Rfam assigns this 98-nucleotide RNA sequence from Mycobacterium cookii to the family "Mycobacterium sRNA Ms_AS-1". Rfam classes the family as a small RNA. The organism belongs to Mycobacterium, within Bacteria.
RNA sequence: GUCGGGUUGGGUACGAACCGGUUCACCCGGUCUCCGAUCACCGCCUGGGUGUGCCUGCCGUCGCUGAAGAUCUGCACACCGCGCCUGCGGAACUUCUU
Number, nucleotide and partner (000 for none) at each position: 001g000002u000003c000004g000005g000006g039007u000008u037009g000010g035011g034012u000013a000014c000015g032016a000017a000018c029019c000020g027021g026022u000023u000024c000025a000026c021027c020028c000029g018030g000031u000032c015033u000034c011035c010036g000037a008038u000039c006040a000041c000042c000043g054044c053045c000046u051047g000048g000049g000050u000051g046052u000053g044054c043055c000056u000057g000058c000059c000060g000061u000062c000063g000064c000065u000066g000067a000068a000069g000070a000071u000072c000073u000074g000075c000076a000077c000078a000079c090080c089081g088082c087083g000084c000085c000086u000087g082088c081089g080090g079091a000092a000093c000094u000095u000096c000097u000098u000